[Rfam]
RNA: mir-1343 microRNA precursor family
Organism: Bos taurus
RNA sequence: GGCUUCGGUGCUGGGGAGCGGCCCCCGGGCGGGCCUCUGCUCUGGCCCCUCCUGGGGCCCGCACUCUCGCUCCGGGCC
Numbered sequence: 001g002g003c004u005u006c007g008g009u010g011c012u013g014g015g016g017a018g019c020g021g022c023c024c025c026c027g028g029g030c031g032g033g034c035c036u037c038u039g040c041u042c043u044g045g046c047c048c049c050u051c052c053u054g055g056g057g058c059c060c061g062c063a064c065u066c067u068c069g070c071u072c073c074g075g076g077c078c
Base pairs, nucleotide, nucleotide: 001078002077003076005075006074007073008072010070011069013067014066015065016064018062019061020060021059023057024056025055026054027053028052029051031048032047033046034045035044